[Rfam]
RNA: FMN riboswitch aptamer (RFN element)
RNA sequence: GAAUUUCUUCGGGGUCAGGUGAAAAUCCUAACCGGCGGUAUAGUCCGCGAGCUUUCGAGCAUGAACUGGUGUGAUUCCAGUACCGACAGUAAAGUCUGGAUGAGAGAAGAAUUCA
Numbered sequence: 001g002a003a004u005u006u007c008u009u010c011g012g013g014g015u016c017a018g019g020u021g022a023a024a025a026u027c028c029u030a031a032c033c034g035g036c037g038g039u040a041u042a043g044u045c046c047g048c049g050a051g052c053u054u055u056c057g058a059g060c061a062u063g064a065a066c067u068g069g070u071g072u073g074a075u076u077c078c079a080g081u082a083c084c085g086a087c088a089g090u091a092a093a094g095u096c097u098g099g100a101u102g103a104g105a106g107a108a109g110a111a112u113u114c115a
Stems, first nucleotide, its partner, number of pairs: 003113001005111006017029003031095002033085002035048004043083002065081005087098003